The family of this 117-nucleotide RNA sequence from Ramlibacter aurantiacus is "ALIL pseudoknot". The base pairs follow the family's consensus structure, which is taken from published work. A reference for the family is Mazauric et al. (2008), "Apical loop-internal loop RNA pseudoknots: a new type of stimulator of -1 translational frameshifting in bacteria", J Biol Chem.
RNA sequence: CGCGUUUUUCGCCCAGGCGGAGCUCGACCGCCGACUGAAGUCCUGAACGACUUCAUCGACAAGCACCGCGAGACCCACGGCGUCGAGCCGAUCUGCACGGCCUUGCAGAUCGCCCCG
Numbered sequence: 001c002g003c004g005u006u007u008u009u010c011g012c013c014c015a016g017g018c019g020g021a022g023c024u025c026g027a028c029c030g031c032c033g034a035c036u037g038a039a040g041u042c043c044u045g046a047a048c049g050a051c052u053u054c055a056u057c058g059a060c061a062a063g064c065a066c067c068g069c070g071a072g073a074c075c076c077a078c079g080g081c082g083u084c085g086a087g088c089c090g091a092u093c094u095g096c097a098c099g100g101c102c103u104u105g106c107a108g109a110u111c112g113c114c115c116c117g
Stems, first nucleotide, its partner, number of pairs: 016032005078117003082113001089112002092109006